[Rfam]
RNA sequence: GGAAGAUUGACGGGGGCUGCUCCUAGUACGAGAGGACCGGAGUGGACGCACCUCUGGUGUACCGGUUGUCACGCCAGUGGCAUCGCCGGGUAGCUAUGUGCGGAAGAGAUAACCGCUGAAAGCAUCUAAGCGGGAAACUUGCCUGAAGAUAAGUCUUCCCGGAGGCUAGACCUCCCUGAAGAGUCGUUCGAGACCAGGACGUUGAUAGGUCGGGUGUGUAAGCGUUGUGAGACGUUUAGCUAACCGAUACUAAUUGCUCGUGAG
Numbered sequence: 001g002g003a004a005g006a007u008u009g010a011c012g013g014g015g016g017c018u019g020c021u022c023c024u025a026g027u028a029c030g031a032g033a034g035g036a037c038c039g040g041a042g043u044g045g046a047c048g049c050a051c052c053u054c055u056g057g058u059g060u061a062c063c064g065g066u067u068g069u070c071a072c073g074c075c076a077g078u079g080g081c082a083u084c085g086c087c088g089g090g091u092a093g094c095u096a097u098g099u100g101c102g103g104a105a106g107a108g109a110u111a112a113c114c115g116c117u118g119a120a121a122g123c124a125u126c127u128a129a130g131c132g133g134g135a136a137a138c139u140u141g142c143c144u145g146a147a148g149a150u151a152a153g154u155c156u157u158c159c160c161g162g163a164g165g166c167u168a169g170a171c172c173u174c175c176c177u178g179a180a181g182a183g184u185c186g187u188u189c190g191a192g193a194c195c196a197g198g199a200c201g202u203u204g205a206u207a208g209g210u211c212g213g214g215u216g217u218g219u220a221a222g223c224g225u226u227g228u229g230a231g232a233c234g235u236u237u238a239g240c241u242a243a244c245c246g247a248u249a250c251u252a253a254u255u256g257c258u259c260g261u262g263a264g
Base pairs, nucleotide, nucleotide: 001159002158003157004156005155006154007153008152011145012144013143014142017045018044019043020042021041022040023039047102048101049100050099051098055096056095057094062089063088064087065086066085067082068081069080070079071078072077106140107139108138113133114132115131116130117129162176164174178261181259182258183257184256185201186200187199188198189197206252207251208250209248210247211246212245213244216240222235223234224233225232226231
RNA: Bacterial large subunit ribosomal RNA, nucleotides 2614 to 2877